[Rfam]
RNA sequence: GAUCGCGGUGAUGACUCCAUAACUUCAAGCUCAACAGACCGGAAUGCAGGUUCUCAUCUUUUUGAGAACGUUGCGUGUCGACCACCCCGCUGAACUGAGCGAUC
Number, nucleotide and partner (000 for none) at each position: 001g104002a103003u102004c101005g100006c099007g000008g000009u000010g000011a000012u000013g000014a000015c000016u000017c000018c000019a000020u000021a000022a000023c000024u000025u000026c000027a000028a000029g000030c000031u000032c000033a000034a000035c000036a000037g000038a000039c000040c000041g000042g000043a000044a000045u000046g000047c000048a000049g000050g000051u000052u000053c000054u000055c000056a000057u000058c000059u000060u000061u000062u000063u000064g000065a000066g000067a000068a000069c000070g000071u000072u000073g000074c000075g000076u000077g000078u000079c000080g000081a000082c000083c000084a000085c000086c000087c000088c000089g000090c000091u000092g000093a000094a000095c000096u000097g000098a000099g006100c005101g004102a003103u002104c001

Rfam assigns this 104-nucleotide sequence from Gossypium klotzschianum to the family "Small nucleolar RNA Z107/R87". Taxonomically the source falls in Gossypium (Eukaryota, Magnoliopsida, eudicotyledons, Malvaceae). The literature on the family includes a 2001 paper in J Mol Biol by Barneche et al., "Identification of 66 box C/D snoRNAs in Arabidopsis thaliana: extensive gene duplications generated multiple isoforms predicting new ribosomal RNA 2'-O-methylation sites". A search with the family's covariance model found it, with a score of 81 bits. Gene Ontology terms of the family: RNA processing and nucleolus. The family's RNA type in Rfam is C/D-box small nucleolar RNA.